[Rfam]
RNA sequence: GGAAAAUAAGCAAGCAAGAAAGAACGGUUGUAGCGACAGGGCGGCUCACAAGUAACGUGGUAGUUAGGCUAUUCGAGAAAUAGACGGAGUGAGUGCAGAAUAAACAAGAACCGUCACCGGAUUCGAAGAAAGUAGGAAUUGCACGGCACUGAUGCAUAGUGUUCCGCACUGAUGGAAGAAAGCGGACAGGCUUGACCGACAAGCACAUUAACCGUAAAACAAGAAGCAAUUAAACGGAAGUAUCGAACGCGCGAAAGACUUAAGCACUUGUUUUCC
Numbered sequence: 001g002g003a004a005a006a007u008a009a010g011c012a013a014g015c016a017a018g019a020a021a022g023a024a025c026g027g028u029u030g031u032a033g034c035g036a037c038a039g040g041g042c043g044g045c046u047c048a049c050a051a052g053u054a055a056c057g058u059g060g061u062a063g064u065u066a067g068g069c070u071a072u073u074c075g076a077g078a079a080a081u082a083g084a085c086g087g088a089g090u091g092a093g094u095g096c097a098g099a100a101u102a103a104a105c106a107a108g109a110a111c112c113g114u115c116a117c118c119g120g121a122u123u124c125g126a127a128g129a130a131a132g133u134a135g136g137a138a139u140u141g142c143a144c145g146g147c148a149c150u151g152a153u154g155c156a157u158a159g160u161g162u163u164c165c166g167c168a169c170u171g172a173u174g175g176a177a178g179a180a181a182g183c184g185g186a187c188a189g190g191c192u193u194g195a196c197c198g199a200c201a202a203g204c205a206c207a208u209u210a211a212c213c214g215u216a217a218a219a220c221a222a223g224a225a226g227c228a229a230u231u232a233a234a235c236g237g238a239a240g241u242a243u244c245g246a247a248c249g250c251g252c253g254a255a256a257g258a259c260u261u262a263a264g265c266a267c268u269u270g271u272u273u274u275c276c
Base pairs, nucleotide, nucleotide: 001276002275003274004273005272006271007270008269009268010267024114025113026112027111028110029109044094045093046092047091048090049089053066054065055064056063069083070082071081072080122247123246124245125244126243132235133234137231138230139229140228141227142226143215144214145213146212151209152208153207154206160188161187162186164185165184166183167182190204191203192202193201194200

This 276-nucleotide sequence belongs to the Rfam family "RAGATH-8 RNA".
On this family, see Weinberg et al., Nat Chem Biol 2015: "New classes of self-cleaving ribozymes revealed by comparative genomics analysis".
The base pairs follow the family's consensus structure, which is taken from published work.
Rfam classes the family as a small RNA.